TPP riboswitch aptamer (THI element): a 104-nucleotide RNA sequence from Pontibaca methylaminivorans. The family's consensus secondary structure is taken from published work. Lineage of the source: Bacteria > Pseudomonadota > Rhodobacterales > Roseobacteraceae > Pontibaca.
RNA sequence: ACUUACUCGUUGGGGUGCCCCGCUUGCCGGGGCUGAGAGGCGCAGGCCGACCCAUCGAACCUGAUCCGGGUCAUGCCGGCGGAGGGAACGGGUAGCUUGACGAU
Numbered sequence: 001a002c003u004u005a006c007u008c009g010u011u012g013g014g015g016u017g018c019c020c021c022g023c024u025u026g027c028c029g030g031g032g033c034u035g036a037g038a039g040g041c042g043c044a045g046g047c048c049g050a051c052c053c054a055u056c057g058a059a060c061c062u063g064a065u066c067c068g069g070g071u072c073a074u075g076c077c078g079g080c081g082g083a084g085g086g087a088a089c090g091g092g093u094a095g096c097u098u099g100a101c102g103a104u
Stems, first nucleotide, its partner, number of pairs: 006092005011054004017033005040047002060085003066079004
Dot-bracket structure: .....(((((((((..(((((.......)))))......((....))...)))).....(((...((((......))))...)))..)))))............